[Rfam]
RNA sequence: GGGGAGUGGCCGGAUCCUGGGGUGUGUCCGGCUGGCCCUGUGCUACGGGGCCUGCGCUGUGGGAUUCGCGCUCCCGCCCCGCAGCCCCCU
Numbered sequence: 001g002g003g004g005a006g007u008g009g010c011c012g013g014a015u016c017c018u019g020g021g022g023u024g025u026g027u028c029c030g031g032c033u034g035g036c037c038c039u040g041u042g043c044u045a046c047g048g049g050g051c052c053u054g055c056g057c058u059g060u061g062g063g064a065u066u067c068g069c070g071c072u073c074c075c076g077c078c079c080c081g082c083a084g085c086c087c088c089c090u
Base pairs, nucleotide, nucleotide: 001090002089003088004087006085009082010081012078013077017076019074020073021072023070024069025068026067027064028063029059030058031057032056035055036054040052042051043050044049
RNA: mir-8799 microRNA precursor family
Organism: Nyctereutes procyonoides